[Rfam]
RNA: sok antitoxin (CssrC)
Organism: Salmonella enterica
RNA sequence: GGGCGCUUGAGGCUGUAUGCCGAAAGCGUUUUGUGGACGGUAUACAGCAGAAAGCCCCUGGAGAUUUUUUUAUCAAUCAACCAAGGGCUCUACUGUAAUGCCUCAACAACAUUAUAGUAGCCUGAUAAUUUAGAUAUGUGUACAUCCUACCGGAAAAGAUA
Dot-bracket structure: (((.((((...(((((((((((...((.....))...)))))))))))...)))))))(((.((((........))))..))).((((...(((((((((.........))))))))).)))).....(...(..............)...).........